Shown here is an 80-nucleotide RNA, a member of the family "RAGATH-18 RNA". It is one of the family's seed sequences. Rfam's curators write: Actinobacteria, Firmicutes, Fusobacteria, Thermotogae (1 example).

[Rfam]
RNA sequence: CUUGUGGACUGUUAUAGCAAAUGGAAGUAGAUUUUAUAUCUCAUGAUAUAAAAACAAAACCAGACAGGUUGAAGCAAGAA
Dot-bracket structure: (((((...(((((........(((.....(.(((((((((....))))))))).)....))))))))......)))))..
Numbered sequence: 001c002u003u004g005u006g007g008a009c010u011g012u013u014a015u016a017g018c019a020a021a022u023g024g025a026a027g028u029a030g031a032u033u034u035u036a037u038a039u040c041u042c043a044u045g046a047u048a049u050a051a052a053a054a055c056a057a058a059a060c061c062a063g064a065c066a067g068g069u070u071g072a073a074g075c076a077a078g079a080a
Stems, first nucleotide, its partner, number of pairs: 001078005009067005022062003030055001032053009